[Rfam]
RNA sequence: GCCCUCAUAUCUCAGUGGUUAGAGCACUGGUCUUGUAAACCAGGGGUCGGGAGUUCGAUUCUCCUUGGGGGCA
Numbered sequence: 001g002c003c004c005u006c007a008u009a010u011c012u013c014a015g016u017g018g019u020u021a022g023a024g025c026a027c028u029g030g031u032c033u034u035g036u037a038a039a040c041c042a043g044g045g046g047u048c049g050g051g052a053g054u055u056c057g058a059u060u061c062u063c064c065u066u067g068g069g070g071g072c073a
Stems, first nucleotide, its partner, number of pairs: 001072007011024003027043005049065005